[Rfam]
RNA sequence: UCGCUGUGAUGGCCUAGAGGAAGAGCAUCCACUCCUUGCUGACCCACUGAGUUUGUAUUGUUUGCAAUACAAGGGUAGCCAAGGUGCCUGGUUCGAGUCCCUGAGUCGCGAGGAUUCAUUUCCUUCUCUUGCACUCACAUGAGUAGUCUGUGACUGGCUGCAACGCGCUAAGCAAUGGGCGAGACCCUCGAGGGAAGCAAUUCUGCAGAGACUCACCCACUCAUGGAUGGCGACACCAGACUACACCUGCACCUCUUCACUGGCAAUGCAAGGGCAGGGUGCUCAACUUCUUUU
Numbered sequence: 001u002c003g004c005u006g007u008g009a010u011g012g013c014c015u016a017g018a019g020g021a022a023g024a025g026c027a028u029c030c031a032c033u034c035c036u037u038g039c040u041g042a043c044c045c046a047c048u049g050a051g052u053u054u055g056u057a058u059u060g061u062u063u064g065c066a067a068u069a070c071a072a073g074g075g076u077a078g079c080c081a082a083g084g085u086g087c088c089u090g091g092u093u094c095g096a097g098u099c100c101c102u103g104a105g106u107c108g109c110g111a112g113g114a115u116u117c118a119u120u121u122c123c124u125u126c127u128c129u130u131g132c133a134c135u136c137a138c139a140u141g142a143g144u145a146g147u148c149u150g151u152g153a154c155u156g157g158c159u160g161c162a163a164c165g166c167g168c169u170a171a172g173c174a175a176u177g178g179g180c181g182a183g184a185c186c187c188u189c190g191a192g193g194g195a196a197g198c199a200a201u202u203c204u205g206c207a208g209a210g211a212c213u214c215a216c217c218c219a220c221u222c223a224u225g226g227a228u229g230g231c232g233a234c235a236c237c238a239g240a241c242u243a244c245a246c247c248u249g250c251a252c253c254u255c256u257u258c259a260c261u262g263g264c265a266a267u268g269c270a271a272g273g274g275c276a277g278g279g280u281g282c283u284c285a286a287c288u289u290c291u292u293u294u
Stems, first nucleotide, its partner, number of pairs: 003013002016291005023284005029279002033274003037266001044263003048259002054071007074253003078250002082248005088239005093233003097228004102223004126167001127165001129163005135153005141148002168172001176219004181214002187210003194203003
RNA: Fungal signal recognition particle RNA